[Rfam]
Shown here is a 314-nucleotide RNA from Candidatus Syntropharchaeum caldarium, a member of the family "Archaeal signal recognition particle RNA". It is annotated as a non-coding RNA gene. Lineage of the source: Archaea > Methanobacteriati > Halobacteriota > Candidatus Syntropharchaeia > Candidatus Syntropharchaeum.
RNA sequence: UUGCGGGCUAGUCCGGGGUGUUCGGCGUGCCCUGUAACUCGAAAUCGUCGAUAUGCGAGGGACGAAGCUCCGGGAAGACGUUGUUUCUGCCACUUCAGCCUGGAUCUCCAACAAUGAGAUCUCGUCCUGUAGGGCUGGCGGUGAGAUGGUGGCUAACCGGAGGGUUUGUCAUCACUUUUCGCCAGGGAGAUCGGUCGAGGCCCGGAAGGGAGCAGGCUUACCCUGGACGUUCGGCGCUUACGGGGGUGCGAGAUCGAGGCGGAUUCCAGUCAAACUGGGUGGCAGAACAGCGGCGACCUGGGGCGUGCCCGCUU
Numbered sequence: 001u002u003g004c005g006g007g008c009u010a011g012u013c014c015g016g017g018g019u020g021u022u023c024g025g026c027g028u029g030c031c032c033u034g035u036a037a038c039u040c041g042a043a044a045u046c047g048u049c050g051a052u053a054u055g056c057g058a059g060g061g062a063c064g065a066a067g068c069u070c071c072g073g074g075a076a077g078a079c080g081u082u083g084u085u086u087c088u089g090c091c092a093c094u095u096c097a098g099c100c101u102g103g104a105u106c107u108c109c110a111a112c113a114a115u116g117a118g119a120u121c122u123c124g125u126c127c128u129g130u131a132g133g134g135c136u137g138g139c140g141g142u143g144a145g146a147u148g149g150u151g152g153c154u155a156a157c158c159g160g161a162g163g164g165u166u167u168g169u170c171a172u173c174a175c176u177u178u179u180c181g182c183c184a185g186g187g188a189g190a191u192c193g194g195u196c197g198a199g200g201c202c203c204g205g206a207a208g209g210g211a212g213c214a215g216g217c218u219u220a221c222c223c224u225g226g227a228c229g230u231u232c233g234g235c236g237c238u239u240a241c242g243g244g245g246g247u248g249c250g251a252g253a254u255c256g257a258g259g260c261g262g263a264u265u266c267c268a269g270u271c272a273a274a275c276u277g278g279g280u281g282g283c284a285g286a287a288c289a290g291c292g293g294c295g296a297c298c299u300g301g302g303g304c305g306u307g308c309c310c311g312c313u314u
Base pairs, nucleotide, nucleotide: 003312004311005310006309007308008307011063012062013061014060015033016032017031018030019029020028021027038059039058040057041056043054067304068303069302070301071300072299073298074297077294079292080291081290084286087285088284089283090282091281092280093279095278096277097276098275100269101268102267103266104265107263108262109261112258118255119254120253121252122251123250124249125248126244127243128242129241130240131239132238133237134235135234136233137232138230139229140228141179143177144176145175147174148173149172150171151170152169153168155166156165157164158163182226183225184224185223186222187221193218194217195216196215201210202209203208

A reference for the family is Wild et al. (2002), "Towards the structure of the mammalian signal recognition particle", Curr Opin Struct Biol. Gene Ontology terms of the family: signal recognition particle, plasma membrane targeting and SRP-dependent cotranslational protein targeting to membrane, signal sequence recognition.